SAM riboswitch aptamer (S box leader): a 100-nucleotide RNA sequence from Savagea serpentis. The family's consensus secondary structure is taken from published work. The SAM riboswitch is found upstream of a number of genes which code for proteins involved in methionine or cysteine biosynthesis in Gram-positive bacteria. Rfam links the family to the GO term regulation of gene expression.
RNA sequence: GUCUUAUCAAGAGAAGUCGAGGGACGAGGCCCAGUGACACUUCAGCAACCUACAGAACGCAAGGUGCUAAUUCCUUACGGAGCAAUCCGACCGAUAAGAG
Numbered sequence: 001g002u003c004u005u006a007u008c009a010a011g012a013g014a015a016g017u018c019g020a021g022g023g024a025c026g027a028g029g030c031c032c033a034g035u036g037a038c039a040c041u042u043c044a045g046c047a048a049c050c051u052a053c054a055g056a057a058c059g060c061a062a063g064g065u066g067c068u069a070a071u072u073c074c075u076u077a078c079g080g081a082g083c084a085a086u087c088c089g090a091c092c093g094a095u096a097a098g099a100g
Base pairs, nucleotide, nucleotide: 002099003098004097005096006095007094008093013043014042015041016040017039021032022031023030027075028074029073044068045067046066047065049064050063051061053059078089079088080087081086
The organism belongs to Savagea, within Bacteria.